[Rfam]
This 91-nucleotide sequence from Phtheirospermum japonicum belongs to the Rfam family "small nucleolar RNA snoR114". Its family is annotated with nucleolus and RNA processing in the Gene Ontology.
RNA sequence: AUGCUGUGAUGAUAAUGUGCGCCCGAAUGUGGAUAUUGGGUUACCCACUAUUGUCCGAUUUGAAGAUGAAAUUAGCGGCGCUUCUGAGCAU
Numbered sequence: 001a002u003g004c005u006g007u008g009a010u011g012a013u014a015a016u017g018u019g020c021g022c023c024c025g026a027a028u029g030u031g032g033a034u035a036u037u038g039g040g041u042u043a044c045c046c047a048c049u050a051u052u053g054u055c056c057g058a059u060u061u062g063a064a065g066a067u068g069a070a071a072u073u074a075g076c077g078g079c080g081c082u083u084c085u086g087a088g089c090a091u
Base pairs, nucleotide, nucleotide: 001091002090003089004088
The family has 24 seed sequences and 1,645 matches in Rfam 15.1. The literature on the family includes a 2009 paper in Nucleic Acids Res by Chen and Wu, "Mining small RNA sequencing data: a new approach to identify small nucleolar RNAs in Arabidopsis". A search with the family's covariance model found it, with a score of 54 bits. Pairs were carried over by alignment from the consensus structure, which was predicted with RNAalifold.